[Rfam]
RNA sequence: UGAUCAUGCAGAGAGGCGCGAGGGACCUGGCCCCAUGACCGCCCGGCAACCUGCCACAAAGGCAAGGUGCUAAUGCCAGACCCGUAAGGGACCCAUGGAGA
Numbered sequence: 001u002g003a004u005c006a007u008g009c010a011g012a013g014a015g016g017c018g019c020g021a022g023g024g025a026c027c028u029g030g031c032c033c034c035a036u037g038a039c040c041g042c043c044c045g046g047c048a049a050c051c052u053g054c055c056a057c058a059a060a061g062g063c064a065a066g067g068u069g070c071u072a073a074u075g076c077c078a079g080a081c082c083c084g085u086a087a088g089g090g091a092c093c094c095a096u097g098g099a100g101a
Base pairs, nucleotide, nucleotide: 001101004098005097006096007095008094013044015043016042017041018040022033023032024031027079028078029077030076045071046070047069048068050067051066052064053063054062055061075093081089082088
RNA: SAM riboswitch aptamer (S box leader)
Organism: Desulfobaculum xiamenense